[Rfam]
RNA sequence: GAGGCUCCGGUUCACGUCGUCGCGGCUGCGACGGCGACCCGGCGGCC
Numbered sequence: 001g002a003g004g005c006u007c008c009g010g011u012u013c014a015c016g017u018c019g020u021c022g023c024g025g026c027u028g029c030g031a032c033g034g035c036g037a038c039c040c041g042g043c044g045g046c047c
Stems, first nucleotide, its partner, number of pairs: 003047003007042004015036009